Annotation
The family of this 399-nucleotide RNA from Rickettsia endosymbiont of Culicoides newsteadi is "Bacterial RNase P class A". Ribonuclease P (RNase P) is a ubiquitous endoribonuclease, found in archaea, bacteria and eukarya as well as chloroplasts and mitochondria. NCBI's taxonomy places the organism under Bacteria, Rickettsiales, Rickettsiaceae, Rickettsieae, Rickettsia. The family's RNA type in Rfam is ribozyme. The literature on the family includes a 1999 paper in Nucleic Acids Res by Brown, "The Ribonuclease P Database".
RNA sequence: CUCGAUGGUCGUGCAGUUGCGUAAAAAUCUAUACUAGAAUUUACGAGGAAAGUCCGGACUCUACAGAGAUAUGGUGCUGGUUAACGUCCAGCGGGAGAGUAAUCUUUUAGGGAAAGUGCCGCAGAAAAUAUACCGCCAAAUUAUAAUAUAGUUUGGUAAGGGUGAAAUGGUGUGGUAAGAGCACACCGGUAGGUUGGUAACAAGCUACGCAUGGUAAACCCCACCAAGAGCAAGAUCAAAUAGGCACUACAGAACUUACGUGUUCCUAGGCAUCUCUGGCUAGAAGUAGUGCGGGUAGAUCGCUUGAGGUAAAUGGUAACAUUUAUCCUAGAUAAAUAACUGCAAUAAAUAAUAGAAAUAUUAUCUAUACAAAAUCCGGCUUAUAGACCAUCAUUUUUU
Numbered sequence: 001c002u003c004g005a006u007g008g009u010c011g012u013g014c015a016g017u018u019g020c021g022u023a024a025a026a027a028u029c030u031a032u033a034c035u036a037g038a039a040u041u042u043a044c045g046a047g048g049a050a051a052g053u054c055c056g057g058a059c060u061c062u063a064c065a066g067a068g069a070u071a072u073g074g075u076g077c078u079g080g081u082u083a084a085c086g087u088c089c090a091g092c093g094g095g096a097g098a099g100u101a102a103u104c105u106u107u108u109a110g111g112g113a114a115a116g117u118g119c120c121g122c123a124g125a126a127a128a129u130a131u132a133c134c135g136c137c138a139a140a141u142u143a144u145a146a147u148a149u150a151g152u153u154u155g156g157u158a159a160g161g162g163u164g165a166a167a168u169g170g171u172g173u174g175g176u177a178a179g180a181g182c183a184c185a186c187c188g189g190u191a192g193g194u195u196g197g198u199a200a201c202a203a204g205c206u207a208c209g210c211a212u213g214g215u216a217a218a219c220c221c222c223a224c225c226a227a228g229a230g231c232a233a234g235a236u237c238a239a240a241u242a243g244g245c246a247c248u249a250c251a252g253a254a255c256u257u258a259c260g261u262g263u264u265c266c267u268a269g270g271c272a273u274c275u276c277u278g279g280c281u282a283g284a285a286g287u288a289g290u291g292c293g294g295g296u297a298g299a300u301c302g303c304u305u306g307a308g309g310u311a312a313a314u315g316g317u318a319a320c321a322u323u324u325a326u327c328c329u330a331g332a333u334a335a336a337u338a339a340c341u342g343c344a345a346u347a348a349a350u351a352a353u354a355g356a357a358a359u360a361u362u363a364u365c366u367a368u369a370c371a372a373a374a375u376c377c378g379g380c381u382u383a384u385a386g387a388c389c390a391u392c393a394u395u396u397u398u399u
Stems, first nucleotide, its partner, number of pairs: 004392007011384001012344007020045006028037001050382003054379005059230004068281001070279001072226005077091004092110001093108006111221002116219002118215003133161002135157009169187006188210001189208004194203003234301004244292006308327008